Shown here is a 137-nucleotide sequence from Nicotiana tabacum, a member of the family "MIR394 microRNA precursor family".
Rfam links the family to the GO terms RISC complex and miRNA-mediated post-transcriptional gene silencing.
NCBI's taxonomy places the organism under Eukaryota, Magnoliopsida, Mesangiospermae, Solanaceae, Nicotiana.
The literature on the family includes a 2004 paper in Mol Cell by Jones-Rhoades and Bartel, "Computational identification of plant microRNAs and their targets, including a stress-induced miRNA".
The match comes from Rfam's covariance-model search (80 bits).
Rfam 15.1 lists 724 matches to the family in 216 species.
[Rfam]
RNA sequence: CUUACAAAGUUCAUUGGCAUUCUGUCCACCUCCCUCUUCCUUAGAAAAGAAGGUGACCAAGAAAAAGAAAAAGGACAAAAAAAAAAGAAGGGUUAAUUAACGUGGAGGUGGGCAUACUGCCAACAGAGUUGUGUUGG
Numbered sequence: 001c002u003u004a005c006a007a008a009g010u011u012c013a014u015u016g017g018c019a020u021u022c023u024g025u026c027c028a029c030c031u032c033c034c035u036c037u038u039c040c041u042u043a044g045a046a047a048a049g050a051a052g053g054u055g056a057c058c059a060a061g062a063a064a065a066a067g068a069a070a071a072a073g074g075a076c077a078a079a080a081a082a083a084a085a086a087g088a089a090g091g092g093u094u095a096a097u098u099a100a101c102g103u104g105g106a107g108g109u110g111g112g113c114a115u116a117c118u119g120c121c122a123a124c125a126g127a128g129u130u131g132u133g134u135u136g137g
Stems, first nucleotide, its partner, number of pairs: 011127001014123006023114011